[Rfam]
RNA sequence: GUGGGUCGAUGAUGUUAUUGUUUACUGCGUUAUCUUUCUCGAACUUCUCAAGUAAUGAGGAAAGCAUUGCCUACUGAGAUCCAAU
Numbered sequence: 001g002u003g004g005g006u007c008g009a010u011g012a013u014g015u016u017a018u019u020g021u022u023u024a025c026u027g028c029g030u031u032a033u034c035u036u037u038c039u040c041g042a043a044c045u046u047c048u049c050a051a052g053u054a055a056u057g058a059g060g061a062a063a064g065c066a067u068u069g070c071c072u073a074c075u076g077a078g079a080u081c082c083a084a085u
Base pairs, nucleotide, nucleotide: 002083003082004081005080006079
A member of the RNA family "Small nucleolar RNA snoR27" from Aegilops tauschii, 85 nucleotides long.
Its family is annotated with RNA processing and nucleolus in the Gene Ontology.
Lineage of the source: Eukaryota > Viridiplantae > Pooideae > Aegilops > Aegilops tauschii.
On this family, see Brown et al., RNA 2001: "Multiple snoRNA gene clusters from Arabidopsis".